RNA sequence: GGAGGAGAGGGUCCUGGAGAAGCGUGGACGGCUCCAGGUGGGUUCUGGCAGGUCCUCACCCUCUCUAGGCCCCAUUCUC
Numbered sequence: 001g002g003a004g005g006a007g008a009g010g011g012u013c014c015u016g017g018a019g020a021a022g023c024g025u026g027g028a029c030g031g032c033u034c035c036a037g038g039u040g041g042g043u044u045c046u047g048g049c050a051g052g053u054c055c056u057c058a059c060c061c062u063c064u065c066u067a068g069g070c071c072c073c074a075u076u077c078u079c
Stems, first nucleotide, its partner, number of pairs: 002079005009072003013069008022059001024057001026055004034048005